[Rfam]
RNA sequence: UUGGAGAAUUUGAAGUCUUCAUCUUGUUGACUUGGAGAAUUUGGAGACUUUAACUUGUGUAUAUGAAGAAUUUGAAGACUUCCAACU
Numbered sequence: 001u002u003g004g005a006g007a008a009u010u011u012g013a014a015g016u017c018u019u020c021a022u023c024u025u026g027u028u029g030a031c032u033u034g035g036a037g038a039a040u041u042u043g044g045a046g047a048c049u050u051u052a053a054c055u056u057g058u059g060u061a062u063a064u065g066a067a068g069a070a071u072u073u074g075a076a077g078a079c080u081u082c083c084a085a086c087u
Base pairs, nucleotide, nucleotide: 001085002084003083004082005081006080009076010075011074012073013072014071017068018067019066020065021064025059026058027057032053033052034051035050036049037048
A member of the RNA family "MIR8024 microRNA precursor family" from Solanum commersonii, 87 nucleotides long. Its family is annotated with miRNA-mediated post-transcriptional gene silencing and RISC complex in the Gene Ontology. The family has 2 seed sequences and 661 matches in Rfam 15.1.